[Rfam]
RNA sequence: CCUUUCCUUGUCAUGGGGUGGUAUGGGAGGCUCAAUGAACGUGUAGUGAGAGUCCCCCUGCUGACACCAUAUCAACACAUAUGCAUCACCUGAGCUUCAUGCUCAGGCUCUGAUGCAAUUUUUGGAAAC
Numbered sequence: 001c002c003u004u005u006c007c008u009u010g011u012c013a014u015g016g017g018g019u020g021g022u023a024u025g026g027g028a029g030g031c032u033c034a035a036u037g038a039a040c041g042u043g044u045a046g047u048g049a050g051a052g053u054c055c056c057c058c059u060g061c062u063g064a065c066a067c068c069a070u071a072u073c074a075a076c077a078c079a080u081a082u083g084c085a086u087c088a089c090c091u092g093a094g095c096u097u098c099a100u101g102c103u104c105a106g107g108c109u110c111u112g113a114u115g116c117a118a119u120u121u122u123u124g125g126a127a128a129c
Base pairs, nucleotide, nucleotide: 006018007017008016009015021061022060023059026056027055030053031052032051033050039047040046083116084115085114086113087112088111089107090106091105092104093103094102
This 129-nucleotide RNA from Perca fluviatilis belongs to the Rfam family "U4atac minor spliceosomal RNA". The source organism's lineage runs through Eukaryota, Metazoa, Eumetazoa, Deuterostomia and Perca. It scores 92 bits against the family's covariance model. Its Rfam clan is "U4 clan". Its family is annotated with mRNA 5'-splice site recognition, pre-mRNA 5'-splice site binding and spliceosomal tri-snRNP complex assembly in the Gene Ontology. About the family: U4atac is an essential component of the minor U12-type spliceosome complex which is required for removal of the rarer class of eukaryotic introns (AT-AC, U12-type). It is annotated as a spliceosomal small nuclear RNA.